The family of this 78-nucleotide sequence from Necator americanus is "SmY spliceosomal RNA". Pairs were carried over by alignment from the consensus structure, which is taken from published work. It is annotated as a spliceosomal small nuclear RNA. It scores 45 bits against the family's covariance model.

RNA sequence: CGAUCUCUUUUCGCAGUAACAGGGCCUUUGCCAAGACCCGUGGACAAAUUUUUGGGAACCCUUACGAGGAUAAGGGUU
Numbered sequence: 001c002g003a004u005c006u007c008u009u010u011u012c013g014c015a016g017u018a019a020c021a022g023g024g025c026c027u028u029u030g031c032c033a034a035g036a037c038c039c040g041u042g043g044a045c046a047a048a049u050u051u052u053u054g055g056g057a058a059c060c061c062u063u064a065c066g067a068g069g070a071u072a073a074g075g076g077u078u
Stems, first nucleotide, its partner, number of pairs: 022039003026035003058077007